TPP riboswitch aptamer (THI element): a 108-nucleotide RNA from Sporosarcina sp. BI001-red. The family's consensus secondary structure is taken from published work.
[Rfam]
RNA sequence: AUUGCCCACUGGGGGAGUCUUUGUAAAAGACUGAGACGCGUAUUGAUAUGCGGACCCUUGGAACCUGAUCUGGCUCAUACCAGCGGAGGGAAGUGGAUCGCAAAUGGA
Numbered sequence: 001a002u003u004g005c006c007c008a009c010u011g012g013g014g015g016a017g018u019c020u021u022u023g024u025a026a027a028a029g030a031c032u033g034a035g036a037c038g039c040g041u042a043u044u045g046a047u048a049u050g051c052g053g054a055c056c057c058u059u060g061g062a063a064c065c066u067g068a069u070c071u072g073g074c075u076c077a078u079a080c081c082a083g084c085g086g087a088g089g090g091a092a093g094u095g096g097a098u099c100g101c102a103a104a105u106g107g108a
Stems, first nucleotide, its partner, number of pairs: 006096005011058004017031005038051005064089003070083004